This 134-nucleotide RNA sequence from Alligator mississippiensis belongs to the Rfam family "Small nucleolar RNA SNORA68".
The organism belongs to Alligator, within Eukaryota.
About the family: U68 is a member of the H/ACA class of small nucleolar RNAs (snoRNAs) which act as guides in the the modification of uridines to pseudouridines.
Pairs were carried over by alignment from the consensus structure, which was predicted with PFOLD.
For this family Rfam cites "The family of box ACA small nucleolar RNAs is defined by an evolutionarily conserved secondary structure and ubiquitous sequence elements essential for RNA accumulation" (Ganot et al., Genes Dev, 1997).
Its family is annotated with nucleolus and RNA processing in the Gene Ontology.
The family's RNA type in Rfam is H/ACA-box small nucleolar RNA.
Nucleotides: 134
Base pairs, nucleotide, nucleotide: 003062004061005060006059007058008057009056021048022047023046024045025044026043027042028041029040030039073127075125076124077123078122079121085112086111087110088109089108090107091106092105093104094103095102
Number, partner (000 for none) and nucleotide at each position: 001000a002000a003062u004061g005060c006059a007058c008057a009056c010000a011000a012000a013000a014000a015000c016000c017000c018000a019000a020000a021048g022047a023046a024045u025044a026043u027042u028041g029040u030039u031000u032000u033000u034000g035000u036000a037000g038000u039030a040029a041028c042027a043026a044025u045024g046023u047022u048021c049000u050000u051000g052000u053000c054000a055000u056009g057008u058007g059006u060005g061004c062003a063000a064000a065000u066000a067000u068000a069000a070000u071000c072000u073127g074000u075125a076124c077123c078122u079121u080000g081000u082000c083000g084000c085112c086111u087110u088109u089108c090107a091106a092105g093104a094103g095102c096000u097000g098000a099000a100000g101000u102095g103094c104093u105092u106091u107090u108089g109088a110087a111086a112085g113000u114000g115000a116000a117000a118000c119000u120000g121079a122078a123077g124076g125075u126000u127073c128000u129000a130000c131000a132000u133000g134000c